[Rfam]
Nucleotides: 072
Stems, first nucleotide, its partner, number of pairs: 008064008017054002020051009
Number, partner (000 for none) and nucleotide at each position: 001000u002000u003000u004000c005000c006000g007000u008064g009063a010062a011061a012060g013059a014058c015057a016000a017054g018053g019000u020051a021050g022049u023048g024047a025046g026045a027044u028043g029000a030000u031000u032000a033000u034000c035000u036000c037000a038000a039000a040000u041000c042000a043028c044027a045026u046025c047024u048023c049022a050021c051020u052000a053018c054017c055000c056000a057015u058014g059013u060012c061011u062010u063009u064008c065000a066000c067000a068000a069000a070000a071000a072000a
The record is a 72-nucleotide sequence from Strigamia maritima, which matches "mir-71 microRNA precursor family" in Rfam. It scores 57 bits against the family's covariance model. On this family, see Yu et al., PLoS One 2008: "The silkworm (Bombyx mori) microRNAs and their expressions in multiple developmental stages". The family has 36 seed sequences and 372 matches in Rfam 15.1.